[Rfam]
RNA sequence: AGAGGCCCUCUGUGGCUGGGGCAGGAUGCUUGCCUCAUCAUCACGGCGACAAAGCAAGCAUUCCGCCAGGCCGCUCACGCUGCCUGC
Numbered sequence: 001a002g003a004g005g006c007c008c009u010c011u012g013u014g015g016c017u018g019g020g021g022c023a024g025g026a027u028g029c030u031u032g033c034c035u036c037a038u039c040a041u042c043a044c045g046g047c048g049a050c051a052a053a054g055c056a057a058g059c060a061u062u063c064c065g066c067c068a069g070g071c072c073g074c075u076c077a078c079g080c081u082g083c084c085u086g087c
Stems, first nucleotide, its partner, number of pairs: 004084003012074006020067003024063010038049002041046001
Shown here is an 87-nucleotide sequence from Myotis brandtii, a member of the family "mir-9195 microRNA precursor family".
Rfam links the family to the GO terms miRNA-mediated post-transcriptional gene silencing and RISC complex.
The base pairs follow the family's consensus structure, which was predicted with RNAalifold.
Taxonomically the source falls in Myotis (Eukaryota, Chordata, Gnathostomata, Euteleostomi).